This 87-nucleotide RNA from Taxus chinensis belongs to the Rfam family "Small nucleolar RNA snoR27". The organism belongs to Taxus, within Eukaryota. Its family is annotated with RNA processing and nucleolus in the Gene Ontology. The family is grouped with related families in Rfam's "snR68 clan".
RNA sequence: UCCGGGUCAAUGAUGUAUUAUUUACUGCGUUAUCUAUCUGUAACUCCAUUUGGACCUGAUGAUGACUUAGUUUGCCUGAGACUUGGA
Dot-bracket structure: (((((((.........................................................................)))))))
It is annotated as a C/D-box small nucleolar RNA.